[Rfam]
RNA sequence: CCUGACUUCUGCCGCGAAUGUGAAGCUACGGCGAAUUCUCGGCUGAAUUUUCGCACCAGCUUC
Numbered sequence: 001c002c003u004g005a006c007u008u009c010u011g012c013c014g015c016g017a018a019u020g021u022g023a024a025g026c027u028a029c030g031g032c033g034a035a036u037u038c039u040c041g042g043c044u045g046a047a048u049u050u051u052c053g054c055a056c057c058a059g060c061u062u063c
Stems, first nucleotide, its partner, number of pairs: 022063006031054004035049001039045001
RNA: Mycobacterium sRNA Ms_IGR-8